[Rfam]
RNA sequence: CCGAACCUCCUGUCCGCACCUCAGUGGAUGUAUGCCAUGAUGAUAAGAUAUCAGAAAUCCUAUCACCGGGUGUACAUCAGCUAAGGUGCGGGUACAGGU
Dot-bracket structure: ..............(((((((.(((.((((((((((.(..(((((...............)))))..))))))))))).))).))))))).........
Rfam assigns this 99-nucleotide RNA sequence from Caenorhabditis elegans to the family "mir-36 microRNA precursor family".
The source organism's lineage runs through Eukaryota, Ecdysozoa, Rhabditina, Peloderinae and Caenorhabditis.
Its Rfam clan is "mir-36 clan".
The family has 46 seed sequences and 199 matches in Rfam 15.1.
The family's consensus secondary structure was predicted with WAR.
The literature on the family includes a 2004 paper in RNA by Ohler et al., "Patterns of flanking sequence conservation and a characteristic upstream motif for microRNA gene identification".